MIR3454 microRNA precursor family: a 145-nucleotide RNA sequence from Ectocarpus siliculosus. Rfam 15.1 lists 30 matches to the family in 2 species. The family's consensus secondary structure was predicted with RNAalifold. Taxonomically the source falls in Ectocarpus (Eukaryota, Stramenopiles, Ochrophyta, Phaeophyceae).

[Rfam]
RNA sequence: GUGGAAUUCUACCCAGCUCCGACGGAAUGGCGCUCGUGGCUAGGUCCCCGCCGCCUUGUAUCACACGAGCGUGUAUGUCCGUGCGACUCAAGGCGGCAGAACUAGCCACGGGCACCCUUCCAUCGGAGCUCGUCAGAAUGCCACG
Numbered sequence: 001g002u003g004g005a006a007u008u009c010u011a012c013c014c015a016g017c018u019c020c021g022a023c024g025g026a027a028u029g030g031c032g033c034u035c036g037u038g039g040c041u042a043g044g045u046c047c048c049c050g051c052c053g054c055c056u057u058g059u060a061u062c063a064c065a066c067g068a069g070c071g072u073g074u075a076u077g078u079c080c081g082u083g084c085g086a087c088u089c090a091a092g093g094c095g096g097c098a099g100a101a102c103u104a105g106c107c108a109c110g111g112g113c114a115c116c117c118u119u120c121c122a123u124c125g126g127a128g129c130u131c132g133u134c135a136g137a138a139u140g141c142c143a144c145g
Stems, first nucleotide, its partner, number of pairs: 001144001003142002006139005013132001015130008024121004029116002032113012045100002050097009061086002064083004